[Rfam]
RNA sequence: GUUCCUUAUGAUGUUCAUCUUGACCAUGCUAAUUCAGAAAUACCUUGAUGAUAAAGUUUAUGUGACGUUCUGAAGGAACC
Numbered sequence: 001g002u003u004c005c006u007u008a009u010g011a012u013g014u015u016c017a018u019c020u021u022g023a024c025c026a027u028g029c030u031a032a033u034u035c036a037g038a039a040a041u042a043c044c045u046u047g048a049u050g051a052u053a054a055a056g057u058u059u060a061u062g063u064g065a066c067g068u069u070c071u072g073a074a075g076g077a078a079c080c
Stems, first nucleotide, its partner, number of pairs: 001079007
RNA: Small nucleolar RNA snoR53Y
Organism: Colocasia esculenta